This 252-nucleotide RNA from Trifolium subterraneum belongs to the Rfam family "MIR2655 microRNA precursor family". Taxonomically the source falls in Trifolium (Eukaryota, Streptophytina, Euphyllophyta, Papilionoideae). Rfam 15.1 lists 892 matches to the family in 5 species. The base pairs follow the family's consensus structure, which was predicted with RNAalifold.
RNA sequence: CUCUUAUCUUUUAAAAGUUUCAAGUUGGUCCCUUAUCUUUAUUUUAGGUUUCAAGUUGGUCCCUUCCGUCAAUUUUUUAACUAUUUUCGUUAAAUUUUGACAUGUGGCAAACUAAUUUGGACACGUGGCACACUUGGACAGAUGACACGUGUUAAAAUUUAACGGUAACAGUAAAAAAAUUGACGGAAGGGACUAACUUGAAACCUAAAAAAAAGAUAAGGGACUAACUUGAAACUUUUAAAAAAUAAGGGA
Numbered sequence: 001c002u003c004u005u006a007u008c009u010u011u012u013a014a015a016a017g018u019u020u021c022a023a024g025u026u027g028g029u030c031c032c033u034u035a036u037c038u039u040u041a042u043u044u045u046a047g048g049u050u051u052c053a054a055g056u057u058g059g060u061c062c063c064u065u066c067c068g069u070c071a072a073u074u075u076u077u078u079a080a081c082u083a084u085u086u087u088c089g090u091u092a093a094a095u096u097u098u099g100a101c102a103u104g105u106g107g108c109a110a111a112c113u114a115a116u117u118u119g120g121a122c123a124c125g126u127g128g129c130a131c132a133c134u135u136g137g138a139c140a141g142a143u144g145a146c147a148c149g150u151g152u153u154a155a156a157a158u159u160u161a162a163c164g165g166u167a168a169c170a171g172u173a174a175a176a177a178a179a180u181u182g183a184c185g186g187a188a189g190g191g192a193c194u195a196a197c198u199u200g201a202a203a204c205c206u207a208a209a210a211a212a213a214a215g216a217u218a219a220g221g222g223a224c225u226a227a228c229u230u231g232a233a234a235c236u237u238u239u240a241a242a243a244a245a246u247a248a249g250g251g252a
Stems, first nucleotide, its partner, number of pairs: 002250006023229003027225003031221010042210002045207003